[Rfam]
RNA: S-element
Organism: Neorhizobium sp. SOG26
RNA sequence: AGUCAAGAGUCUUGAGCGUCAUUUUGGCGGGUGGAUUUCUUUUGCCUUUAAAAAGGUGAAGGAAAAUG
Numbered sequence: 001a002g003u004c005a006a007g008a009g010u011c012u013u014g015a016g017c018g019u020c021a022u023u024u025u026g027g028c029g030g031g032u033g034g035a036u037u038u039c040u041u042u043u044g045c046c047u048u049u050a051a052a053a054a055g056g057u058g059a060a061g062g063a064a065a066a067u068g
Stems, first nucleotide, its partner, number of pairs: 010063004017058004022054004027049001029047001031045005